The family of this 57-nucleotide sequence from Curtobacterium sp. MCBA15_009 is "msiK RNA". The base pairs follow the family's consensus structure, which is taken from published work. The source organism's lineage runs through Bacteria, Actinomycetota, Micrococcales, Microbacteriaceae and Curtobacterium. Rfam classes the family as a cis-regulatory element.
[Rfam]
RNA sequence: GGCAACCGCUUCACUCGGAUCGUCCGGCACGUACCUGCCGGUGAAGGAAGGAUCGAA
Numbered sequence: 001g002g003c004a005a006c007c008g009c010u011u012c013a014c015u016c017g018g019a020u021c022g023u024c025c026g027g028c029a030c031g032u033a034c035c036u037g038c039c040g041g042u043g044a045a046g047g048a049a050g051g052a053u054c055g056a057a
Stems, first nucleotide, its partner, number of pairs: 009046005024041006
Dot-bracket structure: ........(((((..........((((((......)))))))))))...........